[Rfam]
RNA sequence: AGCUAACACUCUGGAGAGACCGGUUGGAUCCGGCGCCGAAGGUGCACGAAGCGAGCACACCCGCUUCCAAACUCUCAGGCAAAAGGACAGAGGGGCGCCC
Numbered sequence: 001a002g003c004u005a006a007c008a009c010u011c012u013g014g015a016g017a018g019a020c021c022g023g024u025u026g027g028a029u030c031c032g033g034c035g036c037c038g039a040a041g042g043u044g045c046a047c048g049a050a051g052c053g054a055g056c057a058c059a060c061c062c063g064c065u066u067c068c069a070a071a072c073u074c075u076c077a078g079g080c081a082a083a084a085g086g087a088c089a090g091a092g093g094g095g096c097g098c099c100c
Base pairs, nucleotide, nucleotide: 007094009092010091011090012089013088020033021032022031023030035080036079037078038076039075042074044072048067049066050065051064052063053062